[Rfam]
RNA sequence: UUGCCCUGCGGAGUGCUCAGGUCCGCCGCAUCUCCUGGGUCCGUGGGGUUCGAUCGGCGGGCGGCGAUGCCGGACGGCCUCUCUGGUCCGCUGCCCGCCGAUCUCCUA
Numbered sequence: 001u002u003g004c005c006c007u008g009c010g011g012a013g014u015g016c017u018c019a020g021g022u023c024c025g026c027c028g029c030a031u032c033u034c035c036u037g038g039g040u041c042c043g044u045g046g047g048g049u050u051c052g053a054u055c056g057g058c059g060g061g062c063g064g065c066g067a068u069g070c071c072g073g074a075c076g077g078c079c080u081c082u083c084u085g086g087u088c089c090g091c092u093g094c095c096c097g098c099c100g101a102u103c104u105c106c107u108a
Base pairs, nucleotide, nucleotide: 003049004048005047006046007045008044009043010042016039017038018037019036020035021034052103053102054101055100056099057098058097059096060095061094062093

The record is a 108-nucleotide sequence from Starkeya sp. ORNL1, which matches "EcpR1" in Rfam.
A reference for the family is del Val et al. (2007), "Identification of differentially expressed small non-coding RNAs in the legume endosymbiont Sinorhizobium meliloti by comparative genomics", Mol Microbiol.
Perviously named SmelC291, SmrC10, or Sra33. According to its overproduction phenotype it was renamed Elongated Cell Phenotype RNA1. Induced by stress,EcpR1 negatively regulates cell cycle master regulatory genes dnaA and gcrA at post-transcriptional level by base pairing between its strongly conserved GC-rich loop and the target mRNAs.
By type it is a small RNA.
Pairs were carried over by alignment from the consensus structure, which was predicted with WAR.
Rfam links the family to the GO terms regulation of translation in response to stress, mRNA binding and negative regulation of cell cycle.